[Rfam]
RNA: Bacterial large subunit ribosomal RNA, nucleotides 2859 to 3119
RNA sequence: AGAAGCUUGAGGAAACCUGUCCCUAGUACGAGAGGACCGGGACGGACGAACCUCUGGUCCACCAGUUGUCUCACCAGGGGCACCGCUGGAUAGCCACGUUCGGACAGGAUAACCGCUGAAAGCAUCUAAGCGGGAAACCUUCUCCAAGAUCAGGCUUCUCACCCACUUGGUGGGAUAAGGCCCCCCGCAGAACACGGGAUCGAUAGGCCAGACCUGGAAGCUCAGUAAUGGGUGCAGGGAACUGGCACUAACCGGCCGAAA
Numbered sequence: 001a002g003a004a005g006c007u008u009g010a011g012g013a014a015a016c017c018u019g020u021c022c023c024u025a026g027u028a029c030g031a032g033a034g035g036a037c038c039g040g041g042a043c044g045g046a047c048g049a050a051c052c053u054c055u056g057g058u059c060c061a062c063c064a065g066u067u068g069u070c071u072c073a074c075c076a077g078g079g080g081c082a083c084c085g086c087u088g089g090a091u092a093g094c095c096a097c098g099u100u101c102g103g104a105c106a107g108g109a110u111a112a113c114c115g116c117u118g119a120a121a122g123c124a125u126c127u128a129a130g131c132g133g134g135a136a137a138c139c140u141u142c143u144c145c146a147a148g149a150u151c152a153g154g155c156u157u158c159u160c161a162c163c164c165a166c167u168u169g170g171u172g173g174g175a176u177a178a179g180g181c182c183c184c185c186c187g188c189a190g191a192a193c194a195c196g197g198g199a200u201c202g203a204u205a206g207g208c209c210a211g212a213c214c215u216g217g218a219a220g221c222u223c224a225g226u227a228a229u230g231g232g233u234g235c236a237g238g239g240a241a242c243u244g245g246c247a248c249u250a251a252c253c254g255g256c257c258g259a260a261a
Base pairs, nucleotide, nucleotide: 001159002158003157004156005155006154007153008152011145012144013143017045018044019043020042021041022040023039047102048101049100050099051098055096056095057094062089063088064087065086066085067082068081069080070079071078072077106140107139108138113133114132115131116130117129162174163173164172176259179257180256181255182254184198185197186196187195204250205249206248207246208245209244210243211242213239214238220233221232222231223230224229